[Rfam]
RNA sequence: CUUCAGGGUGCCGAGCCACAGCGGCGUCUGCCGGCCCUGCCCAUAGGUGGCGAGCAGCGCCUCCGCCUC
Number, nucleotide and partner (000 for none) at each position: 001c000002u000003u000004c000005a000006g000007g000008g000009u000010g000011c000012c000013g000014a000015g025016c024017c023018a000019c000020a000021g000022c000023g017024g016025c015026g000027u000028c065029u000030g063031c000032c059033g058034g000035c000036c000037c054038u053039g000040c000041c050042c049043a048044u000045a000046g000047g000048u043049g042050g041051c000052g000053a038054g037055c000056a000057g000058c033059g032060c000061c000062u000063c030064c000065g028066c000067c000068u000069c000
A member of the RNA family "ASpks TB sRNA" from Dactylosporangium siamense, 69 nucleotides long.
Rfam classes the family as an antisense RNA.
The family's consensus secondary structure is taken from published work.
Lineage of the source: Bacteria > Bacillati > Micromonosporales > Micromonosporaceae > Dactylosporangium.